[Rfam]
RNA sequence: UUGGGUGGCUGAAUUAGAGAUCGGCACCUGUACAUUCAUUUAAUAAAUUGGAGUUGUAAUGUGUCUCUAAAUUUUGAAACUAAAGCGCAAAUCAUUGCGGAUUUUGGCCGUGAUGCA
Numbered sequence: 001u002u003g004g005g006u007g008g009c010u011g012a013a014u015u016a017g018a019g020a021u022c023g024g025c026a027c028c029u030g031u032a033c034a035u036u037c038a039u040u041u042a043a044u045a046a047a048u049u050g051g052a053g054u055u056g057u058a059a060u061g062u063g064u065c066u067c068u069a070a071a072u073u074u075u076g077a078a079a080c081u082a083a084a085g086c087g088c089a090a091a092u093c094a095u096u097g098c099g100g101a102u103u104u105u106g107g108c109c110g111u112g113a114u115g116c117a
Stems, first nucleotide, its partner, number of pairs: 008025005048070006
Source information
This 117-nucleotide sequence from Erwinia tracheiphila belongs to the Rfam family "Ribosomal S15 leader". Lineage of the source: Bacteria > Pseudomonadota > Enterobacterales > Erwiniaceae > Erwinia. Rfam's curators write: The E. coli Ribosomal S15 gene 5' UTR can form two alternative structures. One that is a series of three hairpins, The other includes a pseudoknot. This structure causes translational regulation of the S15 protein. The alignment of this family contains only the final two hairpins which are conserved in other species, and also includes the complete region that forms the alternate structures.